[Rfam]
RNA: c-di-GMP-I riboswitch aptamer
Organism: Fusibacter sp. A1
RNA sequence: AAUGUAACAAGGCAAACCCAUCGUGAGGUGGGGACGCAAAACUACAGGGUCUUCAUAAUGAAGAUAGCCAGGUGCCGAA
Numbered sequence: 001a002a003u004g005u006a007a008c009a010a011g012g013c014a015a016a017c018c019c020a021u022c023g024u025g026a027g028g029u030g031g032g033g034a035c036g037c038a039a040a041a042c043u044a045c046a047g048g049g050u051c052u053u054c055a056u057a058a059u060g061a062a063g064a065u066a067g068c069c070a071g072g073u074g075c076c077g078a079a
Stems, first nucleotide, its partner, number of pairs: 012037002017032006040073001042071002047069002049065007
Dot-bracket structure: ...........((...((((((....))))))...))..(.((...(((((((((...)))))))..)))).)......